[Rfam]
RNA sequence: GUUGCUUCUUACUGGUGAACUCUCUCUUGUUUCAAAGUGGGGGGAUGUUCAUGUUUCUGAAGCAUAGAUUAAUAUCUUUGCCAGUAUUAAACAGCGCUGUGUAUUCUUUUUGUUGUUGUACUGUGCUACCUGUCUCCUGGUACAUUU
Numbered sequence: 001g002u003u004g005c006u007u008c009u010u011a012c013u014g015g016u017g018a019a020c021u022c023u024c025u026c027u028u029g030u031u032u033c034a035a036a037g038u039g040g041g042g043g044g045a046u047g048u049u050c051a052u053g054u055u056u057c058u059g060a061a062g063c064a065u066a067g068a069u070u071a072a073u074a075u076c077u078u079u080g081c082c083a084g085u086a087u088u089a090a091a092c093a094g095c096g097c098u099g100u101g102u103a104u105u106c107u108u109u110u111u112g113u114u115g116u117u118g119u120a121c122u123g124u125g126c127u128a129c130c131u132g133u134c135u136c137c138u139g140g141u142a143c144a145u146u147u
Stems, first nucleotide, its partner, number of pairs: 003064006016051005021045005080141005086135001093127003097123001099121003